[Rfam]
RNA sequence: GGGCUGGCUUUAGCCCAGUGGUUCCUUCGUGUCCUACUUCCCAACCGCCCGGGGCCAACUGGUCCGGUGGUUUGAGACUCGUGGGCAUUCUCCAGUCUUUUU
Numbered sequence: 001g002g003g004c005u006g007g008c009u010u011u012a013g014c015c016c017a018g019u020g021g022u023u024c025c026u027u028c029g030u031g032u033c034c035u036a037c038u039u040c041c042c043a044a045c046c047g048c049c050c051g052g053g054g055c056c057a058a059c060u061g062g063u064c065c066g067g068u069g070g071u072u073u074g075a076g077a078c079u080c081g082u083g084g085g086c087a088u089u090c091u092c093c094a095g096u097c098u099u100u101u102u
Base pairs, nucleotide, nucleotide: 002097003096004095005094006093007092013086014085015084016083018082019081020080021079026076027075028074029073
Vault RNA: a 102-nucleotide sequence from Cavia porcellus. Pairs were carried over by alignment from the consensus structure, which is taken from published work. A search with the family's covariance model found it, with a score of 58 bits.